[Rfam]
RNA sequence: AUUUAUAUUUAUUUAUUUGUAGUCCCUUUUUGAAGGGAAAGAAAUUAUGUAUACACCUCAUGUGUAUAUAGACAAUUUUUUUUCCCAUAUAUUCACUUGUAAAAAGGGUAAAUAAAUUUUAUAAUUUAAUCACAUGUGUAUUUUUAUUUUAUUUAUAAGUUUUUUAUGAAUAAAAUUAGUAGUAAUAUACAUGCUUCGUGCGAUAAAGACAUUUAAAAAGAAAUGAACAAAAAAAUGUGCAUAUGUAAUAUAUAUGUUAUAUAUGUAAUACAUAU
Numbered sequence: 001a002u003u004u005a006u007a008u009u010u011a012u013u014u015a016u017u018u019g020u021a022g023u024c025c026c027u028u029u030u031u032g033a034a035g036g037g038a039a040a041g042a043a044a045u046u047a048u049g050u051a052u053a054c055a056c057c058u059c060a061u062g063u064g065u066a067u068a069u070a071g072a073c074a075a076u077u078u079u080u081u082u083u084c085c086c087a088u089a090u091a092u093u094c095a096c097u098u099g100u101a102a103a104a105a106g107g108g109u110a111a112a113u114a115a116a117u118u119u120u121a122u123a124a125u126u127u128a129a130u131c132a133c134a135u136g137u138g139u140a141u142u143u144u145u146a147u148u149u150u151a152u153u154u155a156u157a158a159g160u161u162u163u164u165u166a167u168g169a170a171u172a173a174a175a176u177u178a179g180u181a182g183u184a185a186u187a188u189a190c191a192u193g194c195u196u197c198g199u200g201c202g203a204u205a206a207a208g209a210c211a212u213u214u215a216a217a218a219a220g221a222a223a224u225g226a227a228c229a230a231a232a233a234a235a236u237g238u239g240c241a242u243a244u245g246u247a248a249u250a251u252a253u254a255u256g257u258u259a260u261a262u263a264u265g266u267a268a269u270a271c272a273u274a275u
Stems, first nucleotide, its partner, number of pairs: 003124005011117009024108007035086010048070009088101004129204003134192009146176014193201002210225005236272003240265010